[Rfam]
RNA sequence: AGAUUAAAUACUUGUCUAAUAUGAAUGAGGCCAUAAGUGUUUGAUCUCUAACACCACAAAAAAAUGGACAAAAGUAAAACCAUCAGGCUAUUUGAUAGAAUGAGUAAGACCACACUCCACAGUGGGCUAUACCACUUUGUAUGGUUCAUUAUUAUAUUGUGGCCUACAUU
Numbered sequence: 001a002g003a004u005u006a007a008a009u010a011c012u013u014g015u016c017u018a019a020u021a022u023g024a025a026u027g028a029g030g031c032c033a034u035a036a037g038u039g040u041u042u043g044a045u046c047u048c049u050a051a052c053a054c055c056a057c058a059a060a061a062a063a064a065u066g067g068a069c070a071a072a073a074g075u076a077a078a079a080c081c082a083u084c085a086g087g088c089u090a091u092u093u094g095a096u097a098g099a100a101u102g103a104g105u106a107a108g109a110c111c112a113c114a115c116u117c118c119a120c121a122g123u124g125g126g127c128u129a130u131a132c133c134a135c136u137u138u139g140u141a142u143g144g145u146u147c148a149u150u151a152u153u154a155u156a157u158u159g160u161g162g163c164c165u166a167c168a169u170u
Base pairs, nucleotide, nucleotide: 004095005094006093007092008091012090014088015087016086017085021083022082107165108164110162111161112160113159114158121150122149123148124147125146126145127144128143129142130141131140132139
Rfam assigns this 170-nucleotide sequence from Mus musculus to the family "Small nucleolar RNA SNORA4".
Rfam describes the family as follows. ACA4 is a member of the H/ACA class of snoRNA that guide the sites of modification of uridines to pseudouridines.
Clan: SNORA4 clan.
Rfam links the family to the GO terms nucleolus and RNA processing.
Taxonomically the source falls in Mus (Eukaryota, Opisthokonta, Eumetazoa, Myomorpha).